Overview: The record is a 75-nucleotide RNA sequence from Lederbergia galactosidilytica, which matches "Group II catalytic intron D1-D4-1" in Rfam.
[Rfam]
RNA sequence: CAAACCGAUCAGUGAUGGCAGGUUGAACUGUAAGAAGUCAGCAGAAGCCAUAGUAGUCCAUAAUGGAUGAAGGGC
Numbered sequence: 001c002a003a004a005c006c007g008a009u010c011a012g013u014g015a016u017g018g019c020a021g022g023u024u025g026a027a028c029u030g031u032a033a034g035a036a037g038u039c040a041g042c043a044g045a046a047g048c049c050a051u052a053g054u055a056g057u058c059c060a061u062a063a064u065g066g067a068u069g070a071a072g073g074g075c
Stems, first nucleotide, its partner, number of pairs: 001025002004023003009018003038045002047075003056068005
Group II introns are found in rRNA, tRNA and mRNA of organelles in fungi, plants and protists, and also in mRNA in bacteria. It scores 69 bits against the family's covariance model. Pairs were carried over by alignment from the consensus structure.